The family of this 593-nucleotide part of an RNA from Chromerida sp. RM11 is "Eukaryotic large subunit ribosomal RNA". The source organism's lineage runs through Eukaryota, Sar, Alveolata and Colpodellida.
[Rfam]
RNA sequence: CGGGGAAAGAAGACCCUGUUGAGCUUGACUCUAGUCCGACUUUGUGAAAUGACCUAGGAGGUGUAGAAUAAGUGGGAGAGAAAUCGCCGGUGAAAUACCACUACUCUUAGCGUCAUUUUACUUAUUGCGUUGCACACUGCCCCCUGUGACAAGCAGGGAUUUUGGGGUUAAGGCUCUUGGAGCCGAAGCGUGCGCAAGACAUAGUCAGGUGGGGAGUUUGGCUGGGGCGGCACAUCUGUUAAAGAAUAACGCAGGUGUCCUAAGGCAAGCUCAAUGAGAACAGAAAUCUCAUGUGGACCAAAAGGGGAAAAGCUUGCUUGAUUUUGAUUUUCAGUACGAAUACAAACUGUGAAAGCAUGGCCUAUCGAACCUUUGGGUCUGUGAAGUUUACAGCCAGAGAUGACAGAAAAGUUACCACAGGGAUAACUGGCUUGUGGCAGCCAAGCGUUCAUAGCGACGUUGCUUUUUGAUCCUUCGAUGUCGGCUCUUCCUAUCAUUGAGAAGCAGAAUUCUCAAAGUGUCGGAUUGUUCACCCGCCAAUAGGGAACGUGAGCUGGGUUUAGACCGUCGUGAGACAGGUUAGUUUUACCCUA
Numbered sequence: 001c002g003g004g005g006a007a008a009g010a011a012g013a014c015c016c017u018g019u020u021g022a023g024c025u026u027g028a029c030u031c032u033a034g035u036c037c038g039a040c041u042u043u044g045u046g047a048a049a050u051g052a053c054c055u056a057g058g059a060g061g062u063g064u065a066g067a068a069u070a071a072g073u074g075g076g077a078g079a080g081a082a083a084u085c086g087c088c089g090g091u092g093a094a095a096u097a098c099c100a101c102u103a104c105u106c107u108u109a110g111c112g113u114c115a116u117u118u119u120a121c122u123u124a125u126u127g128c129g130u131u132g133c134a135c136a137c138u139g140c141c142c143c144c145u146g147u148g149a150c151a152a153g154c155a156g157g158g159a160u161u162u163u164g165g166g167g168u169u170a171a172g173g174c175u176c177u178u179g180g181a182g183c184c185g186a187a188g189c190g191u192g193c194g195c196a197a198g199a200c201a202u203a204g205u206c207a208g209g210u211g212g213g214g215a216g217u218u219u220g221g222c223u224g225g226g227g228c229g230g231c232a233c234a235u236c237u238g239u240u241a242a243a244g245a246a247u248a249a250c251g252c253a254g255g256u257g258u259c260c261u262a263a264g265g266c267a268a269g270c271u272c273a274a275u276g277a278g279a280a281c282a283g284a285a286a287u288c289u290c291a292u293g294u295g296g297a298c299c300a301a302a303a304g305g306g307g308a309a310a311a312g313c314u315u316g317c318u319u320g321a322u323u324u325u326g327a328u329u330u331u332c333a334g335u336a337c338g339a340a341u342a343c344a345a346a347c348u349g350u351g352a353a354a355g356c357a358u359g360g361c362c363u364a365u366c367g368a369a370c371c372u373u374u375g376g377g378u379c380u381g382u383g384a385a386g387u388u389u390a391c392a393g394c395c396a397g398a399g400a401u402g403a404c405a406g407a408a409a410a411g412u413u414a415c416c417a418c419a420g421g422g423a424u425a426a427c428u429g430g431c432u433u434g435u436g437g438c439a440g441c442c443a444a445g446c447g448u449u450c451a452u453a454g455c456g457a458c459g460u461u462g463c464u465u466u467u468u469g470a471u472c473c474u475u476c477g478a479u480g481u482c483g484g485c486u487c488u489u490c491c492u493a494u495c496a497u498u499g500a501g502a503a504g505c506a507g508a509a510u511u512c513u514c515a516a517a518g519u520g521u522c523g524g525a526u527u528g529u530u531c532a533c534c535c536g537c538c539a540a541u542a543g544g545g546a547a548c549g550u551g552a553g554c555u556g557g558g559u560u561u562a563g564a565c566c567g568u569c570g571u572g573a574g575a576c577a578g579g580u581u582a583g584u585u586u587u588a589c590c591c592u593a
Base pairs, nucleotide, nucleotide: 003592004591005590007587008586015421016420017419018418020417021416022413023412024411025410026409028217029216030215031214035209036208038206039205040204041203044121045120046119047118048117049116050115051114052113053112054110055109056108057107058106059105060104071102072101073100074099075098078085079084125197126196127195128194129193135190137188138187143157144156145155146154147153172184173183174182175181176180220233221231222230223229234256235255236254237253238252239251259360260359265317266316267315268314269313270312271297272296274292275291276290277289278288279287298307299306322346323345324344327341328340329339330338348357349356350355371399372398373397374396375395376394379393380392381391382390430471432469434468436464437463438462439461440460441459445455446454482557483555484554485553486552487549488546489545490544491543492542495520496519498515499514500513501512502511503510522536523535524534526532563581564580565579566578567576568575569574